[Rfam]
RNA: dfrA-dnaX RNA
RNA sequence: ACGCCGAAUGGUAAAACUAUAAUAAUUUCAUCAUAACAACAAAAAAGAGUUAUAAUGUAGGAGUUAUGCUAUAAU
Numbered sequence: 001a002c003g004c005c006g007a008a009u010g011g012u013a014a015a016a017c018u019a020u021a022a023u024a025a026u027u028u029c030a031u032c033a034u035a036a037c038a039a040c041a042a043a044a045a046a047g048a049g050u051u052a053u054a055a056u057g058u059a060g061g062a063g064u065u066a067u068g069c070u071a072u073a074a075u
Stems, first nucleotide, its partner, number of pairs: 030070001032068006